[Rfam]
A member of the RNA family "U4 spliceosomal RNA" from Paramecium tetraurelia, 134 nucleotides long. U4 small nuclear RNA (U4 snRNA) is a component of the major U2-dependent spliceosome. The organism belongs to Paramecium, within Eukaryota.

RNA sequence: AUCCUUAUUCAGGGGCAAUAUCGCUGUAAGUGACGUACCAACGGAUACGCGAGAUUGCUAAUUGAAAACUACUCCAAUGCGAGUGUACGACUUCCUUGUGAAGUCGUUCACCAAUUUCUGAAGGGUCGAAAGAC
Numbered sequence: 001a002u003c004c005u006u007a008u009u010c011a012g013g014g015g016c017a018a019u020a021u022c023g024c025u026g027u028a029a030g031u032g033a034c035g036u037a038c039c040a041a042c043g044g045a046u047a048c049g050c051g052a053g054a055u056u057g058c059u060a061a062u063u064g065a066a067a068a069c070u071a072c073u074c075c076a077a078u079g080c081g082a083g084u085g086u087a088c089g090a091c092u093u094c095c096u097u098g099u100g101a102a103g104u105c106g107u108u109c110a111c112c113a114a115u116u117u118c119u120g121a122a123g124g125g126u127c128g129a130a131a132g133a134c
Stems, first nucleotide, its partner, number of pairs: 021052004026048003034043003083111003087107008125134003